A member of the RNA family "HNH endonuclease-associated RNA and ORF (HEARO) RNA" from Moorena producens, 220 nucleotides long. On this family, see Weinberg et al., Nature 2009: "Exceptional structured noncoding RNAs revealed by bacterial metagenome analysis". The family's RNA type in Rfam is non-coding RNA gene.
RNA sequence: GUCAGGAACCCCACGGCUAUAAGCCGGGGGCUUGAAUAAAGCCCACCUGACCAGCCAAAGACCUACAAAGUCUACGUUUAGAGCAAGAGUUUAAGUCCUACCUACGAAUGCAUGAACCAGUUUGUAGCUCUAGAACUUCAGCAUUAAGUGUGGUGUACAAGGGUUAAGCCCGUGUGUUGAAGAAAGUACCGACUCUAAACAUUGGCGAGGUUCACAUUAC
Numbered sequence: 001g002u003c004a005g006g007a008a009c010c011c012c013a014c015g016g017c018u019a020u021a022a023g024c025c026g027g028g029g030g031c032u033u034g035a036a037u038a039a040a041g042c043c044c045a046c047c048u049g050a051c052c053a054g055c056c057a058a059a060g061a062c063c064u065a066c067a068a069a070g071u072c073u074a075c076g077u078u079u080a081g082a083g084c085a086a087g088a089g090u091u092u093a094a095g096u097c098c099u100a101c102c103u104a105c106g107a108a109u110g111c112a113u114g115a116a117c118c119a120g121u122u123u124g125u126a127g128c129u130c131u132a133g134a135a136c137u138u139c140a141g142c143a144u145u146a147a148g149u150g151u152g153g154u155g156u157a158c159a160a161g162g163g164u165u166a167a168g169c170c171c172g173u174g175u176g177u178u179g180a181a182g183a184a185a186g187u188a189c190c191g192a193c194u195c196u197a198a199a200c201a202u203u204g205g206c207g208a209g210g211u212u213c214a215c216a217u218u219a220c
Stems, first nucleotide, its partner, number of pairs: 001051006010030002012027001016024002031041003054206005059073004076200006088194004096134002102127008114212002117210002136182009148173002152169001154168001156166002